[Rfam]
RNA sequence: UUCGCGUACCGGGCCCCUCUGGCGUUUGCUGCUCUGCAGUUUGCGUGAUGUCGGACGUGAUC
Number, nucleotide and partner (000 for none) at each position: 001u000002u000003c000004g000005c000006g056007u055008a000009c054010c053011g052012g051013g000014c000015c000016c000017c000018u000019c000020u000021g000022g046023c045024g044025u043026u000027u000028g040029c039030u038031g037032c000033u000034c000035u000036g000037c031038a030039g029040u028041u000042u000043g025044c024045g023046u022047g000048a000049u000050g000051u012052c011053g010054g009055a007056c006057g000058u000059g000060a000061u000062c000
Rfam assigns this 62-nucleotide sequence from Aurantiacibacter marinus to the family "terC RNA". Lineage of the source: Bacteria > Pseudomonadati > Pseudomonadota > Erythrobacteraceae > Aurantiacibacter. The family's RNA type in Rfam is cis-regulatory element. The match comes from Rfam's covariance-model search (42 bits).